[Rfam]
RNA sequence: UUUGAUUUGCCCCACUUUCGAGCCUUGCAGCCACUGCUGGACGUCAUCACGGAAUGAGUCGCUCGAUUAACACUAAACCGAAUCAGGGCAAAC
Numbered sequence: 001u002u003u004g005a006u007u008u009g010c011c012c013c014a015c016u017u018u019c020g021a022g023c024c025u026u027g028c029a030g031c032c033a034c035u036g037c038u039g040g041a042c043g044u045c046a047u048c049a050c051g052g053a054a055u056g057a058g059u060c061g062c063u064c065g066a067u068u069a070a071c072a073c074u075a076a077a078c079c080g081a082a083u084c085a086g087g088g089c090a091a092a093c
Base pairs, nucleotide, nucleotide: 006092007091008090009089010088011087012086018066019065020064021063022062023061028039029038030037031036040060041059042058044057045056
Record summary:
RAGATH-13 RNA: a 93-nucleotide RNA sequence from Legionella israelensis. Pairs were carried over by alignment from the consensus structure, which is taken from published work. The literature on the family includes a 2015 paper in Nat Chem Biol by Weinberg et al., "New classes of self-cleaving ribozymes revealed by comparative genomics analysis". The organism belongs to Legionella, within Bacteria. Rfam links the family to the GO term catalytic activity. Rfam 15.1 lists 49 matches to the family in 31 species. By type it is a ribozyme.